small nucleolar RNA snoR143: a 172-nucleotide RNA sequence from Lupinus angustifolius. Pairs were carried over by alignment from the consensus structure, which was predicted with RNAalifold. Rfam links the family to the GO terms RNA processing and nucleolus. For this family Rfam cites "Mining small RNA sequencing data: a new approach to identify small nucleolar RNAs in Arabidopsis" (Chen and Wu, Nucleic Acids Res, 2009).
Nucleotides: 172
Stems, first nucleotide, its partner, number of pairs: 002061002005058002009053003013049003017045011108166007116159001127148001129146001131144001
Number, partner (000 for none) and nucleotide at each position: 001000u002061u003060c004000u005058g006057a007000u008000g009053a010052a011051a012000c013049a014048u015047g016000u017045u018044u019043u020042c021041u022040u023039u024038u025037u026036u027035g028000u029000u030000u031000u032000g033000a034000a035027c036026a037025g038024a039023a040022a041021a042020g043019a044018a045017a046000c047015u048014g049013u050000u051011u052010u053009u054000u055000u056000a057006u058005u059000u060003g061002g062000g063000a064000a065000u066000a067000u068000u069000g070000u071000u072000u073000g074000u075000g076000u077000g078000u079000u080000g081000u082000a083000a084000u085000u086000g087000a088000g089000c090000a091000g092000c093000g094000g095000c096000c097000a098000g099000a100000c101000a102000a103000c104000c105000g106000u107000a108166g109165g110164g111163a112162u113161g114160g115000u116159a117000u118000c119000c120000a121000c122000a123000g124000g125000u126000g127148g128000u129146g130000g131144g132000u133000u134000u135000u136000u137000u138000c139000a140000a141000u142000c143000u144131c145000a146129c147000u148127c149000g150000u151000c152000u153000a154000c155000u156000g157000a158000u159116u160114c161113c162112a163111u164110c165109u166108c167000a168000u169000a170000u171000u172000u